Rfam assigns this 65-nucleotide RNA sequence from Avrilella dinanensis to the family "Fluoride riboswitch aptamer (crcB RNA motif)".
The match comes from Rfam's covariance-model search (56 bits).
The base pairs follow the family's consensus structure, which is taken from published work.
[Rfam]
RNA sequence: UUGAAAUUUGGCAAUGAGGUCUGCCUUAAACCGCUUUAAUUAAAGCUGAUGACUUCUACUUUAAU
Numbered sequence: 001u002u003g004a005a006a007u008u009u010g011g012c013a014a015u016g017a018g019g020u021c022u023g024c025c026u027u028a029a030a031c032c033g034c035u036u037u038a039a040u041u042a043a044a045g046c047u048g049a050u051g052a053c054u055u056c057u058a059c060u061u062u063a064a065u
Base pairs, nucleotide, nucleotide: 010025011024012023013022016056017055018054019053020052021051033046034045035044036043